[Rfam]
RNA: PreQ1 (pre queuosine) riboswitch aptamer
Organism: Priestia filamentosa
RNA sequence: AUUACCGUGGUUCGUAACCCUCCCACGCUAAAAAACUAAGGAGAA
Numbered sequence: 001a002u003u004a005c006c007g008u009g010g011u012u013c014g015u016a017a018c019c020c021u022c023c024c025a026c027g028c029u030a031a032a033a034a035a036c037u038a039a040g041g042a043g044a045a
Base pairs, nucleotide, nucleotide: 006027007026008025009024010023015038016037